[Rfam]
RNA sequence: UGCGAGGGUGAUGAGUUGCACUGCUGUGGAGUAACCGUGUCGGGUGACAUGGACUCCUCAGAAUCUCCCUGAUGACAAAACUAAGUGCACAGGGGCCAUCUGACUCGCA
Numbered sequence: 001u002g003c004g005a006g007g008g009u010g011a012u013g014a015g016u017u018g019c020a021c022u023g024c025u026g027u028g029g030a031g032u033a034a035c036c037g038u039g040u041c042g043g044g045u046g047a048c049a050u051g052g053a054c055u056c057c058u059c060a061g062a063a064u065c066u067c068c069c070u071g072a073u074g075a076c077a078a079a080a081c082u083a084a085g086u087g088c089a090c091a092g093g094g095g096c097c098a099u100c101u102g103a104c105u106c107g108c109a
Stems, first nucleotide, its partner, number of pairs: 004108001006106003024061003028057002031054002037050005
The family of this 109-nucleotide RNA sequence from Arenaria interpres is "Small nucleolar RNA SNORD67". The base pairs follow the family's consensus structure. The family's RNA type in Rfam is C/D-box small nucleolar RNA. Its family is annotated with RNA processing and nucleolus in the Gene Ontology. Rfam's curators write: snoRNA HBII-166 belongs to the C/D family of snoRNAs.